Rfam assigns this 107-nucleotide RNA from Dethiobacter alkaliphilus to the family "Glycine riboswitch aptamer". A search with the family's covariance model found it, with a score of 53 bits.
RNA sequence: AAGAUUCUAAUGGGAGAGACCCCAUAAAGAGGGGCACCAAAGAUGCAAUCUGCUUGGGCCAGGCAGCCGGCAGAGAAUAUUUCAGGUAAAAGAACCAUUAGGUGAAG
Number, nucleotide and partner (000 for none) at each position: 001a000002a000003g000004a000005u000006u102007c101008u100009a099010a098011u097012g096013g095014g000015a000016g000017a000018g000019a000020c034021c033022c032023c031024a000025u000026a000027a000028a000029g000030a000031g023032g022033g021034g020035c000036a087037c086038c085039a000040a082041a000042g000043a081044u000045g000046c000047a000048a000049u074050c073051u072052g071053c070054u069055u000056g000057g000058g000059c000060c000061a000062g000063g000064c000065a000066g000067c000068c000069g054070g053071c052072a051073g050074a049075g000076a000077a000078u000079a000080u000081u043082u040083c000084a000085g038086g037087u036088a000089a000090a000091a000092g000093a000094a000095c013096c012097a011098u010099u009100a008101g007102g006103u000104g000105a000106a000107g000